Purine riboswitch aptamer: a 102-nucleotide RNA sequence from Alkalibacter rhizosphaerae. The family's consensus secondary structure is taken from published work. The source organism's lineage runs through Bacteria, Bacillati, Bacillota, Clostridia and Alkalibacter.

RNA sequence: AUUUAUACAACAGAACCUUCUUAUAUAAAAUCAGGGAUAUGGCCUGAACGUCUCUACCGAAAAACCGGAAAUUUUUCGACUAUAAGAAGGAAACAUGCAUAU
Numbered sequence: 001a002u003u004u005a006u007a008c009a010a011c012a013g014a015a016c017c018u019u020c021u022u023a024u025a026u027a028a029a030a031u032c033a034g035g036g037a038u039a040u041g042g043c044c045u046g047a048a049c050g051u052c053u054c055u056a057c058c059g060a061a062a063a064a065c066c067g068g069a070a071a072u073u074u075u076u077c078g079a080c081u082a083u084a085a086g087a088a089g090g091a092a093a094c095a096u097g098c099a100u101a102u
Stems, first nucleotide, its partner, number of pairs: 018088008031047005058078007